[Rfam]
RNA sequence: GCCGAUGAUGAUUAUCCAAUUAGUCGAGGUAUAGUGGACCUGAGACCCUGUUUACAGGGAGAAUCCCUUGUUGAAGCUAUAUUUCAAAUGAUAAUAAUGGAGAUAUUAAUGGA
Numbered sequence: 001g002c003c004g005a006u007g008a009u010g011a012u013u014a015u016c017c018a019a020u021u022a023g024u025c026g027a028g029g030u031a032u033a034g035u036g037g038a039c040c041u042g043a044g045a046c047c048c049u050g051u052u053u054a055c056a057g058g059g060a061g062a063a064u065c066c067c068u069u070g071u072u073g074a075a076g077c078u079a080u081a082u083u084u085c086a087a088a089u090g091a092u093a094a095u096a097a098u099g100g101a102g103a104u105a106u107u108a109a110u111g112g113a
Stems, first nucleotide, its partner, number of pairs: 002112002046059005
RNA: Small nucleolar RNA Z278
Organism: Papaver nudicaule